[Rfam]
RNA sequence: UCCUCGGCGACAAGGAAUCUGAAGGAAGCUGGAGGCAAACUUCUGGUCUGACGAACAGAAACUACAUCAGGCAUAUAUAUGUUGGGUAAAGUUGCAACACAAACUAAAGCCCUAAACUAUCCGGAAGCAUAUGGUGUAAAUGUAGCAGAUAUAUGAAAGGAAAGAUUGCGUU
Numbered sequence: 001u002c003c004u005c006g007g008c009g010a011c012a013a014g015g016a017a018u019c020u021g022a023a024g025g026a027a028g029c030u031g032g033a034g035g036c037a038a039a040c041u042u043c044u045g046g047u048c049u050g051a052c053g054a055a056c057a058g059a060a061a062c063u064a065c066a067u068c069a070g071g072c073a074u075a076u077a078u079a080u081g082u083u084g085g086g087u088a089a090a091g092u093u094g095c096a097a098c099a100c101a102a103a104c105u106a107a108a109g110c111c112c113u114a115a116a117c118u119a120u121c122c123g124g125a126a127g128c129a130u131a132u133g134g135u136g137u138a139a140a141u142g143u144a145g146c147a148g149a150u151a152u153a154u155g156a157a158a159g160g161a162a163a164g165a166u167u168g169c170g171u172u
Stems, first nucleotide, its partner, number of pairs: 001016004006011001028172001030170002036164001040159003044155002046150005062145005071137003076133007084112004090105004